A member of the RNA family "Glycine riboswitch aptamer" from Nonomuraea zeae, 99 nucleotides long.
The match comes from Rfam's covariance-model search (64 bits).
Pairs were carried over by alignment from the consensus structure.
Its family is annotated with glycine biosynthetic process in the Gene Ontology.

RNA sequence: CGACCCCGUGCGGGAGAGUCCCCUAGGCCACCGGCCGAGGGGCGCCGAAGGAGCAACCCUCCCCGGAAUCUCUCAGGCAACCGGUACCGCUCGGGUGAG
Numbered sequence: 001c002g003a004c005c006c007c008g009u010g011c012g013g014g015a016g017a018g019u020c021c022c023c024u025a026g027g028c029c030a031c032c033g034g035c036c037g038a039g040g041g042g043c044g045c046c047g048a049a050g051g052a053g054c055a056a057c058c059c060u061c062c063c064c065g066g067a068a069u070c071u072c073u074c075a076g077g078c079a080a081c082c083g084g085u086a087c088c089g090c091u092c093g094g095g096u097g098a099g
Stems, first nucleotide, its partner, number of pairs: 006094003010090004020042004044078003047074002051072003057066002